[Rfam]
RNA sequence: UCUGAUGAUGUGUCGCCUAUCAUUUGGAGGUGCAGAUGGCUUUGGGAUCCUGUUUACAGGAUGAACAUACCUGGAGGCACUGUAUCCACAUGACAGAGCAAGUCUAAGG
Numbered sequence: 001u002c003u004g005a006u007g008a009u010g011u012g013u014c015g016c017c018u019a020u021c022a023u024u025u026g027g028a029g030g031u032g033c034a035g036a037u038g039g040c041u042u043u044g045g046g047a048u049c050c051u052g053u054u055u056a057c058a059g060g061a062u063g064a065a066c067a068u069a070c071c072u073g074g075a076g077g078c079a080c081u082g083u084a085u086c087c088a089c090a091u092g093a094c095a096g097a098g099c100a101a102g103u104c105u106a107a108g109g
Stems, first nucleotide, its partner, number of pairs: 002109002048061005
Notes
Small nucleolar RNA Z278: a 109-nucleotide RNA from Triticum aestivum. Lineage of the source: Eukaryota > Streptophytina > Magnoliopsida > Petrosaviidae > Triticum. Gene Ontology terms of the family: nucleolus and RNA processing. From the family's description: snoZ278 is a C/D box small nucleolar RNA. Its methylation guide targets have not been reported.